This 125-nucleotide RNA sequence from Neorhizobium galegae belongs to the Rfam family "Alphaproteobacterial ar14". Rfam classes the family as a small RNA. The base pairs follow the family's consensus structure. Taxonomically the source falls in Neorhizobium galegae bv. orientalis (Bacteria, Pseudomonadati, Alphaproteobacteria, Rhizobiaceae).
[Rfam]
RNA sequence: UGUUAUCAGACGGCCCAUUCCUCCUCCCAGGGACGUCUGUAGGAACGGUGGCACUCCUCCUCCCAGCCGCUGUUCGGUUCUUUACGGAAAGCCUGCCGCACCUCCUCCCGCGGCAGGCUUUUUCG
Numbered sequence: 001u002g003u004u005a006u007c008a009g010a011c012g013g014c015c016c017a018u019u020c021c022u023c024c025u026c027c028c029a030g031g032g033a034c035g036u037c038u039g040u041a042g043g044a045a046c047g048g049u050g051g052c053a054c055u056c057c058u059c060c061u062c063c064c065a066g067c068c069g070c071u072g073u074u075c076g077g078u079u080c081u082u083u084a085c086g087g088a089a090a091g092c093c094u095g096c097c098g099c100a101c102c103u104c105c106u107c108c109c110g111c112g113g114c115a116g117g118c119u120u121u122u123u124c125g
Stems, first nucleotide, its partner, number of pairs: 007039006014032003043075010089120011

Background
A reference for the family is del Val et al. (2012), "A survey of sRNA families in alpha-proteobacteria", RNA Biol.